Shown here is a 67-nucleotide RNA sequence from Microcebus murinus, a member of the family "U7 small nuclear RNA". Rfam's curators write: Animal histone pre-mRNAs are spliced by a different mechanism than nuclear pre-mRNAs and self-splicing introns. This processing involves the U7 snRNP, which contains only one RNA species: U7. The 5' end of U7 RNA is thought to base-pair to a conserved spacer element downstream of the cleavage site in histone pre-mRNA. This family contains a number of annotated U7 pseudogenes. It scores 52 bits against the family's covariance model.
[Rfam]
RNA sequence: CAGUGUUAUUGCUCUUUUAGCAUUUGUCUAGCAGGUUUUCCGGUCCUUACUUGGAAGAUUGACCCCA
Numbered sequence: 001c002a003g004u005g006u007u008a009u010u011g012c013u014c015u016u017u018u019a020g021c022a023u024u025u026g027u028c029u030a031g032c033a034g035g036u037u038u039u040c041c042g043g044u045c046c047u048u049a050c051u052u053g054g055a056a057g058a059u060u061g062a063c064c065c066c067a
Stems, first nucleotide, its partner, number of pairs: 034064003037057005042051003